[Rfam]
RNA sequence: AAAUGCUUUGUUCACAAGCAGUAAAUAAGUGAACCUCGAACCUAUCUAGGAAUACGAUAUAGCGUUACUUCCGAACGGCAAACCAUGGCACUACGAAGUAAACGUAUGAUAGGCAAGAGUAAAGAAAACGCAUUAAUCAAGCGUAGUAUAAGGUGGCAUGCGAUUAUGCAAACAUCGAGGUCCUGGAAAAACCGAUGUAAAAUAAAUAACAGCACCCGUUUAGCGAGCGUGGUGAUAGGCGUUAUAGGCU
Number, nucleotide and partner (000 for none) at each position: 001a000002a000003a000004u000005g000006c000007u000008u000009u000010g034011u033012u032013c031014a030015c029016a000017a000018g000019c000020a000021g000022u000023a000024a000025a000026u000027a000028a000029g015030u014031g013032a012033a011034c010035c119036u118037c117038g000039a000040a000041c000042c112043u111044a110045u109046c108047u000048a000049g000050g000051a000052a000053u000054a105055c104056g103057a000058u000059a000060u000061a000062g000063c000064g000065u101066u100067a099068c098069u097070u096071c095072c000073g000074a000075a000076c000077g000078g000079c000080a000081a000082a000083c000084c000085a000086u000087g000088g000089c000090a000091c000092u000093a000094c000095g071096a070097a069098g068099u067100a066101a065102a000103c056104g055105u054106a000107u000108g046109a045110u044111a043112g042113g000114c000115a000116a000117g037118a036119g035120u000121a000122a000123a000124g000125a000126a000127a000128a144129c143130g142131c141132a000133u000134u000135a000136a000137u000138c000139a000140a000141g131142c130143g129144u128145a000146g000147u000148a000149u000150a000151a000152g000153g000154u000155g000156g169157c168158a167159u166160g165161c000162g000163a000164u000165u160166a159167u158168g157169c156170a000171a000172a000173c197174a196175u195176c194177g193178a000179g000180g000181u000182c000183c000184u000185g000186g000187a000188a000189a000190a000191a000192c000193c177194g176195a175196u174197g173198u000199a000200a000201a000202a000203u000204a000205a000206a000207u000208a000209a000210c000211a000212g000213c234214a233215c232216c231217c229218g228219u227220u226221u000222a000223g000224c000225g000226a220227g219228c218229g217230u000231g216232g215233u214234g213235a000236u000237a000238g000239g000240c000241g000242u000243u000244a000245u000246a000247g000248g000249c000250u000
A member of the RNA family "EGFOA-assoc-1 RNA", 250 nucleotides long.